[Rfam]
RNA sequence: AGCAAAAUGAUGAAGUAAUUUUGUCUGAAACUGAUGUGGAUUGUUUCAUAUAUACCUUCAAAGUUCUCUGAUUGCU
Numbered sequence: 001a002g003c004a005a006a007a008u009g010a011u012g013a014a015g016u017a018a019u020u021u022u023g024u025c026u027g028a029a030a031c032u033g034a035u036g037u038g039g040a041u042u043g044u045u046u047c048a049u050a051u052a053u054a055c056c057u058u059c060a061a062a063g064u065u066c067u068c069u070g071a072u073u074g075c076u
Stems, first nucleotide, its partner, number of pairs: 001076005

The family of this 76-nucleotide RNA from Trifolium pratense is "Small nucleolar RNA R160". The organism belongs to Trifolium, within Eukaryota. Rfam 15.1 lists 799 matches to the family in 221 species. The pairing is the family consensus, mapped onto this sequence. By type it is a C/D-box small nucleolar RNA. For this family Rfam cites "The high diversity of snoRNAs in plants: identification and comparative study of 120 snoRNA genes from Oryza sativa" (Chen et al., Nucleic Acids Res, 2003). From the family's description: snoR160 is a C/D box small nucleolar RNA, which acts as a methylation guide for 25S ribosomal RNA in plants. snoR160 has been alternatively named snoZ270 in rice. Its family is annotated with nucleolus and RNA processing in the Gene Ontology. A search with the family's covariance model found it, with a score of 70 bits.